A member of the RNA family "mir-87 microRNA precursor family" from Hermetia illucens, 70 nucleotides long.
RNA sequence: CAUUCGUGCCUGUAUUUUGCUGAGCCUUAGUUAUGUAAUCGGUUGAGCAAAAUUUCAGGUGUGUGAGAAA
Numbered sequence: 001c002a003u004u005c006g007u008g009c010c011u012g013u014a015u016u017u018u019g020c021u022g023a024g025c026c027u028u029a030g031u032u033a034u035g036u037a038a039u040c041g042g043u044u045g046a047g048c049a050a051a052a053u054u055u056c057a058g059g060u061g062u063g064u065g066a067g068a069a070a
Base pairs, nucleotide, nucleotide: 003067004066005065006064007061008060009059010058011057012056014053015052016051017050018049020047021046023044026042027041